[Rfam]
RNA sequence: UUCUUAUCAAGAGUGGUGGAGGGACUGGCCCGAUGAAGCCCGGCAACCGGUUUGACACGGUGCCAAUUCCAGCAGGGUGUAUCGCUCUGGCAGAUAAGAA
Numbered sequence: 001u002u003c004u005u006a007u008c009a010a011g012a013g014u015g016g017u018g019g020a021g022g023g024a025c026u027g028g029c030c031c032g033a034u035g036a037a038g039c040c041c042g043g044c045a046a047c048c049g050g051u052u053u054g055a056c057a058c059g060g061u062g063c064c065a066a067u068u069c070c071a072g073c074a075g076g077g078u079g080u081a082u083c084g085c086u087c088u089g090g091c092a093g094a095u096a097a098g099a100a
Base pairs, nucleotide, nucleotide: 001100002099003098004097005096006095007094008093013041015040016039017038021031022030023029025072026071027070028069042064043063044062045061047060048059049056068092073089074088075087076086077085078084
RNA: SAM riboswitch aptamer (S box leader)
Organism: Anoxybacillus sp. B7M1